The record is a 45-nucleotide sequence from Nocardioides insulae, which matches "L31-Actinobacteria ribosomal protein leader" in Rfam. The source organism's lineage runs through Bacteria, Propionibacteriales, Nocardioidaceae, Nocardioides and Nocardioides insulae. A reference for the family is Eckert and Weinberg (2020), "Discovery of 20 novel ribosomal leader candidates in bacteria and archaea", BMC Microbiol.
RNA sequence: UCGGUUCCGGUUCACGGUCGUGCGCUCGCACACCGACCCGGCACC
Numbered sequence: 001u002c003g004g005u006u007c008c009g010g011u012u013c014a015c016g017g018u019c020g021u022g023c024g025c026u027c028g029c030a031c032a033c034c035g036a037c038c039c040g041g042c043a044c045c
Stems, first nucleotide, its partner, number of pairs: 003045003007041004015035004020031004